[Rfam]
RNA sequence: AUCGCCUCUUGAAUAACCGGAUGCUAUUAGUGGGGAGUAGUAUCUUCUCCCUAUUUCGGCUUAGCAUCUGGCUCAGACGGAGGCGCAGAGCAAGGUCUCGAAGCAUUUUGAGGGAGAGGAUCUUCUUCUCUGGUUCCUUUCUUAGAUUGCUUCCGAUAUCA
Numbered sequence: 001a002u003c004g005c006c007u008c009u010u011g012a013a014u015a016a017c018c019g020g021a022u023g024c025u026a027u028u029a030g031u032g033g034g035g036a037g038u039a040g041u042a043u044c045u046u047c048u049c050c051c052u053a054u055u056u057c058g059g060c061u062u063a064g065c066a067u068c069u070g071g072c073u074c075a076g077a078c079g080g081a082g083g084c085g086c087a088g089a090g091c092a093a094g095g096u097c098u099c100g101a102a103g104c105a106u107u108u109u110g111a112g113g114g115a116g117a118g119g120a121u122c123u124u125c126u127u128c129u130c131u132g133g134u135u136c137c138u139u140u141c142u143u144a145g146a147u148u149g150c151u152u153c154c155g156a157u158a159u160c161a
Base pairs, nucleotide, nucleotide: 003085004084005083006082007081009080015073017071018070019069020068021067022066024064025063026062100153101152102151103150104149107132110130111129112128114127117124118123133148135146136145
Rfam assigns this 161-nucleotide sequence from Spirodela intermedia to the family "Small nucleolar RNA snoR138". By type it is an H/ACA-box small nucleolar RNA. The family's consensus secondary structure was predicted with mfold. Rfam links the family to the GO terms RNA processing and nucleolus.